[Rfam]
Nucleotides: 035
Stems, first nucleotide, its partner, number of pairs: 002035002005032004010028001012027005017021001
Number, partner (000 for none) and nucleotide at each position: 001000c002035u003034g004000u005032u006031u007030c008029u009000u010028g011000c012027u013026u014025u015024a016023a017021c018000a019000g020000u021017g022000u023016u024015u025014g026013a027012a028010c029008a030007g031006a032005a033000c034003c035002g